[Rfam]
Shown here is a 49-nucleotide sequence, a member of the family "DUF3800-VI RNA".
RNA sequence: CGGUUGGGAGGGCUGCAUUUGCGGUCCGUUGGCGCAAGCCACCCGGCUG
Numbered sequence: 001c002g003g004u005u006g007g008g009a010g011g012g013c014u015g016c017a018u019u020u021g022c023g024g025u026c027c028g029u030u031g032g033c034g035c036a037a038g039c040c041a042c043c044c045g046g047c048u049g
Base pairs, nucleotide, nucleotide: 001049002048003047004046005045006044007043008042010027011026012025013024014023030041031040032039033038